About this RNA: mir-172 microRNA precursor family: a 126-nucleotide sequence from Abrus precatorius. Rfam 15.1 lists 2,076 matches to the family in 219 species. The family's consensus secondary structure was predicted with PFOLD. Rfam describes the family as follows. mir-172 has been experimentally verified in Arabidopsis thaliana. This family is thought to target mRNAs coding for APETALA2-like transcription factors. The mature sequence is excised from the 3' arm of the hairpin. A search with the family's covariance model found it, with a score of 81 bits. NCBI's taxonomy places the organism under Eukaryota, Viridiplantae, Magnoliopsida, Fabaceae, Abrus.

[Rfam]
RNA sequence: UUAUUUGCGGAUGUAGCAUCAUCAAGAUUCACAUGCAAAUGCAGGUGGGUGGGACUCUGAUGCAAUCUAAAGGCUCUGCCAACCAAGUUGAAGUGAGAAUCUUGAUGAUGCUGCAUCAGCCAUAAA
Numbered sequence: 001u002u003a004u005u006u007g008c009g010g011a012u013g014u015a016g017c018a019u020c021a022u023c024a025a026g027a028u029u030c031a032c033a034u035g036c037a038a039a040u041g042c043a044g045g046u047g048g049g050u051g052g053g054a055c056u057c058u059g060a061u062g063c064a065a066u067c068u069a070a071a072g073g074c075u076c077u078g079c080c081a082a083c084c085a086a087g088u089u090g091a092a093g094u095g096a097g098a099a100u101c102u103u104g105a106u107g108a109u110g111c112u113g114c115a116u117c118a119g120c121c122a123u124a125a126a
Stems, first nucleotide, its partner, number of pairs: 010117021032095002